Rfam assigns this 96-nucleotide sequence from Alicyclobacillus hesperidum to the family "S10-Clostridia ribosomal protein leader".
[Rfam]
RNA sequence: AAAUAGCGAUGAAGCGGAAGGUUGCCUAUGUGUCCAUAAGCCAUAUGGGAUACCGAUGGGGGAAUUUCUGCGGAGUAUGUCCAACGAAUUGGGCGA
Numbered sequence: 001a002a003a004u005a006g007c008g009a010u011g012a013a014g015c016g017g018a019a020g021g022u023u024g025c026c027u028a029u030g031u032g033u034c035c036a037u038a039a040g041c042c043a044u045a046u047g048g049g050a051u052a053c054c055g056a057u058g059g060g061g062g063a064a065u066u067u068c069u070g071c072g073g074a075g076u077a078u079g080u081c082c083a084a085c086g087a088a089u090u091g092g093g094c095g096a
Base pairs, nucleotide, nucleotide: 014071015070016069019067020066021065025060026059027058028057029056078095079094080093081092082091083090
Overview: Rfam classes the family as a cis-regulatory leader. Pairs were carried over by alignment from the consensus structure, which is taken from published work.